A member of the RNA family "Purine riboswitch aptamer" from Lactobacillus crispatus, 98 nucleotides long. From the family's description: Riboswitches are metabolite binding domains within certain messenger RNAs that serve as precision sensors for their corresponding targets. Allosteric rearrangement of mRNA structure is mediated by ligand binding, and this results in modulation of gene expression. A class of riboswitches that selectively recognises guanine and becomes saturated at concentrations as low as 5 nM. In Bacillus subtilis, this mRNA motif is located on at least five separate transcriptional units that together encode 17 genes that are mostly involved in purine transport and purine nucleotide biosynthesis. Lineage of the source: Bacteria > Bacillati > Bacilli > Lactobacillales > Lactobacillus crispatus. Gene Ontology term of the family: purine nucleobase biosynthetic process. The family's consensus secondary structure is taken from published work.

[Rfam]
RNA sequence: GAUUAAGCCAACACAAAUAUCUAUAUAUCGUCGAAAUAAGGUCGACAGUCUCUACCCGGUACCGUAAAUACCGGACUAUAGGUGAAUGAACGUUAAGA
Numbered sequence: 001g002a003u004u005a006a007g008c009c010a011a012c013a014c015a016a017a018u019a020u021c022u023a024u025a026u027a028u029c030g031u032c033g034a035a036a037u038a039a040g041g042u043c044g045a046c047a048g049u050c051u052c053u054a055c056c057c058g059g060u061a062c063c064g065u066a067a068a069u070a071c072c073g074g075a076c077u078a079u080a081g082g083u084g085a086a087u088g089a090a091c092g093u094u095a096a097g098a
Base pairs, nucleotide, nucleotide: 018084019083020082021081022080023079024078025077030046031045032044033043034042056074057073058072059071060070061069